[Rfam]
RNA sequence: CAAGGCCGCUAGGGGUGUUGGUGCACGACCUGUUCGUGCACCGACUGAGAAAGUCCCUUUGAACCUGAUUGAGGUAAUCCUCGCGCAGGGAAGCAUGUAGAGAGCCCG
Numbered sequence: 001c002a003a004g005g006c007c008g009c010u011a012g013g014g015g016u017g018u019u020g021g022u023g024c025a026c027g028a029c030c031u032g033u034u035c036g037u038g039c040a041c042c043g044a045c046u047g048a049g050a051a052a053g054u055c056c057c058u059u060u061g062a063a064c065c066u067g068a069u070u071g072a073g074g075u076a077a078u079c080c081u082c083g084c085g086c087a088g089g090g091a092a093g094c095a096u097g098u099a100g101a102g103a104g105c106c107c108g
Base pairs, nucleotide, nucleotide: 008094009093010092011058012057013056014055016052017045018044019043020042021041022040023039024038025037026036027035028034064089065088066087067086070083071082072081073080
This 108-nucleotide RNA sequence from Variovorax sp. belongs to the Rfam family "TPP riboswitch aptamer (THI element)".
Gene Ontology term of the family: thiamine pyrophosphate binding.